Rfam assigns this 72-nucleotide RNA sequence from Rhinopithecimicrobium faecis to the family "tRNA".
[Rfam]
RNA sequence: GUUCCCGUAGUUUAAUGGAUAGAAUAACAGAUUCCGGUUCUGUCGAUAUGGGUUCGACUCCCUUCGGGAACA
Numbered sequence: 001g002u003u004c005c006c007g008u009a010g011u012u013u014a015a016u017g018g019a020u021a022g023a024a025u026a027a028c029a030g031a032u033u034c035c036g037g038u039u040c041u042g043u044c045g046a047u048a049u050g051g052g053u054u055c056g057a058c059u060c061c062c063u064u065c066g067g068g069a070a071c072a
Base pairs, nucleotide, nucleotide: 001071002070003069004068005067006066007065010025011024012023013022027043028042029041030040031039048064050062051061052060
Annotation: NCBI's taxonomy places the organism under Bacteria, Pseudomonadati, Sphingobacteriia, Sphingobacteriales, Rhinopithecimicrobium.